[Rfam]
RNA sequence: AAAGUGGCCUACGCCACCGCCAUGGACUGGUUCAUUGCUGUGUGCUACGCUUUU
Dot-bracket structure: (((..(((.((.(((((.((.(((((....))))).)).))).)))).))))))
Record summary
Editing element of GABA-3 exon 9: a 54-nucleotide RNA from Oryzias latipes. The source organism's lineage runs through Eukaryota, Eumetazoa, Vertebrata, Neopterygii and Oryzias. Rfam 15.1 lists 4,208 matches to the family in 654 species. On this family, see Ohlson et al., RNA 2007: "Editing modifies the GABA(A) receptor subunit alpha3".